Bacterial RNase P class A: a 349-nucleotide RNA sequence from Pseudoflavonifractor capillosus.

[Rfam]
RNA sequence: CAAGUAAGCUGGACAGCCGCGGAUCGAGGCCGAAAGGCCCGAUAUGAGGAAAGUCCGGGCUCCACAGGGCAAGGAUAACGGGUAACACCCGCCGGGGGCGACCCUAGGAAAAGGGCAACAGAGAUAUACCGCCACGUUCUGCGUGGUAAGGGUGGAAAGGCGGAGGUAAGAGCCCGCCCGACGACUGGGAACUGCUCGUCGCUGUAACCUCUAUCCGGAGCAACGCCGUGGGAGAACAUAUGGCCGGCCCGGCCGUUCUCAGGAGGCGGCUUGAUCGUACCGGCAACGGUACGGCUAGAUAGAUGGCUGUCUUAAAAGACAGAACCCGGCUUACAGGCUUACUUGCCGC
Numbered sequence: 001c002a003a004g005u006a007a008g009c010u011g012g013a014c015a016g017c018c019g020c021g022g023a024u025c026g027a028g029g030c031c032g033a034a035a036g037g038c039c040c041g042a043u044a045u046g047a048g049g050a051a052a053g054u055c056c057g058g059g060c061u062c063c064a065c066a067g068g069g070c071a072a073g074g075a076u077a078a079c080g081g082g083u084a085a086c087a088c089c090c091g092c093c094g095g096g097g098g099c100g101a102c103c104c105u106a107g108g109a110a111a112a113g114g115g116c117a118a119c120a121g122a123g124a125u126a127u128a129c130c131g132c133c134a135c136g137u138u139c140u141g142c143g144u145g146g147u148a149a150g151g152g153u154g155g156a157a158a159g160g161c162g163g164a165g166g167u168a169a170g171a172g173c174c175c176g177c178c179c180g181a182c183g184a185c186u187g188g189g190a191a192c193u194g195c196u197c198g199u200c201g202c203u204g205u206a207a208c209c210u211c212u213a214u215c216c217g218g219a220g221c222a223a224c225g226c227c228g229u230g231g232g233a234g235a236a237c238a239u240a241u242g243g244c245c246g247g248c249c250c251g252g253c254c255g256u257u258c259u260c261a262g263g264a265g266g267c268g269g270c271u272u273g274a275u276c277g278u279a280c281c282g283g284c285a286a287c288g289g290u291a292c293g294g295c296u297a298g299a300u301a302g303a304u305g306g307c308u309g310u311c312u313u314a315a316a317a318g319a320c321a322g323a324a325c326c327c328g329g330c331u332u333a334c335a336g337g338c339u340u341a342c343u344u345g346c347c348g349c
Stems, first nucleotide, its partner, number of pairs: 001345010011334001012311007020046002023043004028038001051332003055329005060220004067250004073216005079091004093107001094105004108211002113209002115205003129151002131147007159178005165173001180200005185194001187192001224268004232260006242254004275294008
Dot-bracket structure: ((((((((((((((((((.((.((((.(.........).)))).))....[[[.[[[[[((((...[[[[..(((((.((((.....)))).(((((....)))).)((...(((((...........(((((((((...)))))))..)).......(((((.(.......)))))).((((((.(....).).)))))..)))..)))))))))))))...((((....((((((....((((.]]]]))))))))))....))))......((((((((....))))))))..........))))))).............]]]]]]]].).))))))))))....
By type it is a ribozyme.